RNA sequence: AUGGUGGCCUUUCAUCAAGAAUCCAUCCUUGGGUCUUGGAAAGCUUGGGGGGGCUUGGAGAGAGGGAUUCCUCAUCCUCCUCCAAAAUUCCAACAGUUCGCCUGUGCUUAGCCAUGACGAAUCAUCCCACAGAUGCAAGAAGAAUCUUCCCUGAAGCAAGCUCAGUGUUUGGCUAAUGCCUGGCAGACCGGCAAGUCACAGAAAGGCAACAGGCUCGUUUAUGGCUUA
Numbered sequence: 001a002u003g004g005u006g007g008c009c010u011u012u013c014a015u016c017a018a019g020a021a022u023c024c025a026u027c028c029u030u031g032g033g034u035c036u037u038g039g040a041a042a043g044c045u046u047g048g049g050g051g052g053g054c055u056u057g058g059a060g061a062g063a064g065g066g067a068u069u070c071c072u073c074a075u076c077c078u079c080c081u082c083c084a085a086a087a088u089u090c091c092a093a094c095a096g097u098u099c100g101c102c103u104g105u106g107c108u109u110a111g112c113c114a115u116g117a118c119g120a121a122u123c124a125u126c127c128c129a130c131a132g133a134u135g136c137a138a139g140a141a142g143a144a145u146c147u148u149c150c151c152u153g154a155a156g157c158a159a160g161c162u163c164a165g166u167g168u169u170u171g172g173c174u175a176a177u178g179c180c181u182g183g184c185a186g187a188c189c190g191g192c193a194a195g196u197c198a199c200a201g202a203a204a205g206g207c208a209a210c211a212g213g214c215u216c217g218u219u220u221a222u223g224g225c226u227u228a
Stems, first nucleotide, its partner, number of pairs: 057083003096188003100184002113178003212226004
Dot-bracket structure: ........................................................(((.....................)))............(((.((...........(((............................................................)))....)).))).......................((((.......))))..
RNA: Early nodulin 40
Organism: Hevea brasiliensis